[Rfam]
RNA sequence: AAGUGUGUGUUCUAAGUGUCUAAUGAUGAGUUUCAUAGGGCAGAUUUUGAGGUGAAAAUUAAUUCAUCAUUGAUACUCCUAUGAUAUCUGAAGACACUUAAGAAUCU
Numbered sequence: 001a002a003g004u005g006u007g008u009g010u011u012c013u014a015a016g017u018g019u020c021u022a023a024u025g026a027u028g029a030g031u032u033u034c035a036u037a038g039g040g041c042a043g044a045u046u047u048u049g050a051g052g053u054g055a056a057a058a059u060u061a062a063u064u065c066a067u068c069a070u071u072g073a074u075a076c077u078c079c080u081a082u083g084a085u086a087u088c089u090g091a092a093g094a095c096a097c098u099u100a101a102g103a104a105u106c107u
Stems, first nucleotide, its partner, number of pairs: 013100009030087002033084008043074001046073002049070001051068006
Shown here is a 107-nucleotide RNA sequence from Jaculus jaculus, a member of the family "Small nucleolar RNA SNORD90". It is annotated as a C/D-box small nucleolar RNA. From the family's description: snoRNA HBII-295 belongs to the family of C/D snoRNAs. It is the human orthologue of the mouse MBII-295 and has no identified RNA target.